[Rfam]
Nucleotides: 090
Stems, first nucleotide, its partner, number of pairs: 011079003018072008033058004
Number, partner (000 for none) and nucleotide at each position: 001000c002000u003000g004000a005000g006000c007000a008000c009000u010000u011079u012078g013077c014000c015000c016000u017000g018072a019071g020070a021069a022068c023067u024066g025065a026000a027000u028000u029000c030000c031000a032000u033058a034057g035056a036055u037000g038000g039000u040000g041000u042000u043000u044000a045000u046000a047000c048000a049000g050000a051000u052000u053000u054000c055036a056035u057034c058033u059000a060000u061000g062000g063000g064000u065025u066024c067023a068022g069021u070020u071019c072018u073000u074000c075000u076000g077013g078012c079011a080000g081000u082000g083000u084000g085000u086000u087000c088000a089000a090000c

This 90-nucleotide RNA sequence from Danionella cerebrum belongs to the Rfam family "mir-146 microRNA precursor family". Rfam links the family to the GO terms RISC complex and miRNA-mediated post-transcriptional gene silencing. It scores 63 bits against the family's covariance model. Pairs were carried over by alignment from the consensus structure, which was predicted with WAR. Lineage of the source: Eukaryota > Metazoa > Deuterostomia > Gnathostomata > Danionella. A reference for the family is Lagos-Quintana et al. (2002), "Identification of tissue-specific microRNAs from mouse", Curr Biol.